Rfam assigns this 67-nucleotide RNA from Flavobacterium kingsejongi to the family "S15-Flavobacteria ribosomal protein leader". Lineage of the source: Bacteria > Pseudomonadati > Bacteroidota > Flavobacteriales > Flavobacterium. For this family Rfam cites "Discovery of 20 novel ribosomal leader candidates in bacteria and archaea" (Eckert and Weinberg, BMC Microbiol, 2020). A search with the family's covariance model found it, with a score of 70 bits.

[Rfam]
RNA sequence: UACUUUUGCACCCGAAUAGGAUAUCCUUAUUCACUACAUAAUAAUCAUUUAAAAUAAUAUUAGCAUG
Dot-bracket structure: .............((((((.......))))))...................................
Numbered sequence: 001u002a003c004u005u006u007u008g009c010a011c012c013c014g015a016a017u018a019g020g021a022u023a024u025c026c027u028u029a030u031u032c033a034c035u036a037c038a039u040a041a042u043a044a045u046c047a048u049u050u051a052a053a054a055u056a057a058u059a060u061u062a063g064c065a066u067g
Stems, first nucleotide, its partner, number of pairs: 014032006